Notes:
A member of the RNA family "int-alpA RNA" from Teichococcus wenyumeiae, 75 nucleotides long. Pairs were carried over by alignment from the consensus structure, which is taken from published work. The source organism's lineage runs through Bacteria, Pseudomonadati, Pseudomonadota, Roseomonadaceae and Roseomonas. It is annotated as a small RNA. Acidobacteria (1 example), Planctomycetes (1 example), Proteobacteria.
RNA sequence: GGCGCGGCUAGGUUUGGCCGCCGAAAGCCGGUUCCUCAUGCCCGGCCCGCCGCGCCGUCUCGCUCUGCAUGAGGG
Number, nucleotide and partner (000 for none) at each position: 001g056002g055003c054004g053005c052006g051007g050008c049009u000010a000011g022012g021013u020014u000015u000016g000017g000018c000019c000020g013021c012022c011023g000024a000025a000026a000027g046028c045029c044030g043031g042032u000033u000034c075035c074036u073037c000038a000039u000040g000041c000042c031043c030044g029045g028046c027047c000048c000049g008050c007051c006052g005053c004054g003055c002056c001057g000058u000059c000060u000061c000062g000063c000064u000065c000066u000067g000068c000069a000070u000071g000072a000073g036074g035075g034